[Rfam]
RNA sequence: AGUGAGUAAAGUUCAUCUGCUCGUAUAAUGAUGAGGAUAUGGCUCAUAAGUUUCUACCAGAUAACCGUAAAUUAUCUGACUACGAGUGAAAGUGGUACCUAG
Numbered sequence: 001a002g003u004g005a006g007u008a009a010a011g012u013u014c015a016u017c018u019g020c021u022c023g024u025a026u027a028a029u030g031a032u033g034a035g036g037a038u039a040u041g042g043c044u045c046a047u048a049a050g051u052u053u054c055u056a057c058c059a060g061a062u063a064a065c066c067g068u069a070a071a072u073u074a075u076c077u078g079a080c081u082a083c084g085a086g087u088g089a090a091a092g093u094g095g096u097a098c099c100u101a102g
Stems, first nucleotide, its partner, number of pairs: 018088008029049001031047005058078007